Record summary
Ribosomal protein L20 leader: a 130-nucleotide RNA sequence from Paratissierella segnis. On this family, see Zengel and Lindahl, Prog Nucleic Acid Res Mol Biol 1994: "Diverse mechanisms for regulating ribosomal protein synthesis in Escherichia coli". By type it is a cis-regulatory leader. Rfam describes the family as follows. This family is a putative r-protein leader autoregulatory structure found in B. subtilis and other low-GC Gram-positive bacteria. It is located in the 5' untranslated regions of mRNAs encoding initiation factor 3 followed by ribosomal proteins L35 and L20 (infC-rpmI-rplT). A Rho-independent transcription terminator structure that is probably involved in regulation is included at the 3' end. The base pairs follow the family's consensus structure, which was predicted with CMfinder. It scores 66 bits against the family's covariance model.
RNA sequence: UGAAUUAAGUAGAAGGUCCGCUUCUCACCUUAUAGCUAAGGCUCAUAAGGUUAAACGAUGAAAAGCUAUAAUUGCGAUUAUAUUUUUGUGCGUAAAAGCGGGUAUUCUAUACCCGCUUUUAUUUUUAAAU
Numbered sequence: 001u002g003a004a005u006u007a008a009g010u011a012g013a014a015g016g017u018c019c020g021c022u023u024c025u026c027a028c029c030u031u032a033u034a035g036c037u038a039a040g041g042c043u044c045a046u047a048a049g050g051u052u053a054a055a056c057g058a059u060g061a062a063a064a065g066c067u068a069u070a071a072u073u074g075c076g077a078u079u080a081u082a083u084u085u086u087u088g089u090g091c092g093u094a095a096a097a098g099c100g101g102g103u104a105u106u107c108u109a110u111a112c113c114c115g116c117u118u119u120u121a122u123u124u125u126u127a128a129a130u
Stems, first nucleotide, its partner, number of pairs: 011025005027051003032046002035042002097117009